[Rfam]
Shown here is a 373-nucleotide RNA from Vandammella animalimorsus, a member of the family "transfer-messenger RNA".
A search with the family's covariance model found it, with a score of 192 bits.
About the family: Bacterial tmRNA, also known as 10Sa RNA or SsrA, is named for its dual tRNA and mRNA-like properties. Its role is to liberate the mRNA from a stalled ribosome. To accomplish this part of the tmRNA is used as a reading frame that ends in a translation stop signal. The broken mRNA is replaced in the ribosome by the tmRNA and translation of the tmRNA leads to addition of a proteolysis tag to the incomplete protein enabling recognition by a protease.
Rfam links the family to the GO term RNA catabolic process.
RNA sequence: GGGGCUGUCCUGGUUUCGACGUGGGUACGGAUCUGGAGUGGCGCAUGCCGAGCUUGAGUCACGCUCGUAAAUCUCGAUUCACUAAACUAACUGCAAACGACGAUCGUUUCGCACUCGCCGCCUAAAUCCGGCGAGACUUGCAACAGCACGCUGAUGGGCUGGGCCAAAACCGCAAGGUGAUGGCUGCAAGUGAAUUCACAUCAGCUGGCCGCAUGCCGGGCAUCUUGGCAUGUGGCGAGAUCCAAGGAUGCUGGCCUGAUCGAUAGCGUGUGGCUGCGCGAUCGACCCGGCGAGAUCAAAACAGACCACUAAGCAUGUAGAACUGCCCGGCAAAGGCUUGCGGACGCGGGUUCAACUCCCGCCAGCUCCACCA
Numbered sequence: 001g002g003g004g005c006u007g008u009c010c011u012g013g014u015u016u017c018g019a020c021g022u023g024g025g026u027a028c029g030g031a032u033c034u035g036g037a038g039u040g041g042c043g044c045a046u047g048c049c050g051a052g053c054u055u056g057a058g059u060c061a062c063g064c065u066c067g068u069a070a071a072u073c074u075c076g077a078u079u080c081a082c083u084a085a086a087c088u089a090a091c092u093g094c095a096a097a098c099g100a101c102g103a104u105c106g107u108u109u110c111g112c113a114c115u116c117g118c119c120g121c122c123u124a125a126a127u128c129c130g131g132c133g134a135g136a137c138u139u140g141c142a143a144c145a146g147c148a149c150g151c152u153g154a155u156g157g158g159c160u161g162g163g164c165c166a167a168a169a170c171c172g173c174a175a176g177g178u179g180a181u182g183g184c185u186g187c188a189a190g191u192g193a194a195u196u197c198a199c200a201u202c203a204g205c206u207g208g209c210c211g212c213a214u215g216c217c218g219g220g221c222a223u224c225u226u227g228g229c230a231u232g233u234g235g236c237g238a239g240a241u242c243c244a245a246g247g248a249u250g251c252u253g254g255c256c257u258g259a260u261c262g263a264u265a266g267c268g269u270g271u272g273g274c275u276g277c278g279c280g281a282u283c284g285a286c287c288c289g290g291c292g293a294g295a296u297c298a299a300a301a302c303a304g305a306c307c308a309c310u311a312a313g314c315a316u317g318u319a320g321a322a323c324u325g326c327c328c329g330g331c332a333a334a335g336g337c338u339u340g341c342g343g344a345c346g347c348g349g350g351u352u353c354a355a356c357u358c359c360c361g362c363c364a365g366c367u368c369c370a371c372c373a
Base pairs, nucleotide, nucleotide: 001369002368003367004366005365006364007363020342021341022340023339024338025337026336033330034329035328036327038326039325040324041323044317045316046315047314048313049067050066051065052064053063055081056080057079058078059077060076114135115134116133117132118131119130120129137190138189139188140187141186142185144161145160146159147158150205151204152203153202154201155200156199208236209235210234211233212232213231214230215229216228218252219251223247254291255290256289258287260285261284262283263282266279267278268277270309271308272307273306274304275303276302346362347361348360349359350358